[Rfam]
RNA sequence: ACACUGAAAGGAGGUGAUCCUGGUUGAGUACCGUCAGGAUGUGUGAGGUGGCUGCUCGCUAGAGCCGCCCCUGCCUGCGCAGGGCGAGGUCCUAGGCCUCCGGCAGGCGAAAUCCCAAGCAGUCACCCGGCCCGUGGGCUCACCGGAACAUCCCCGGUGCCUCGGCGCCCGGCCCCUCACA
Numbered sequence: 001a002c003a004c005u006g007a008a009a010g011g012a013g014g015u016g017a018u019c020c021u022g023g024u025u026g027a028g029u030a031c032c033g034u035c036a037g038g039a040u041g042u043g044u045g046a047g048g049u050g051g052c053u054g055c056u057c058g059c060u061a062g063a064g065c066c067g068c069c070c071c072u073g074c075c076u077g078c079g080c081a082g083g084g085c086g087a088g089g090u091c092c093u094a095g096g097c098c099u100c101c102g103g104c105a106g107g108c109g110a111a112a113u114c115c116c117a118a119g120c121a122g123u124c125a126c127c128c129g130g131c132c133c134g135u136g137g138g139c140u141c142a143c144c145g146g147a148a149c150a151u152c153c154c155c156g157g158u159g160c161c162u163c164g165g166c167g168c169c170c171g172g173c174c175c176c177u178c179a180c181a
Base pairs, nucleotide, nucleotide: 013056014055015054016053018051057109058108059107060106062104065103066102067101070096071095072094129175130174132172133171134170136168138166139165140164142158143157144156145155
The family of this 181-nucleotide RNA sequence is "Actinobacteria sRNA Ms_IGR-5". The base pairs follow the family's consensus structure.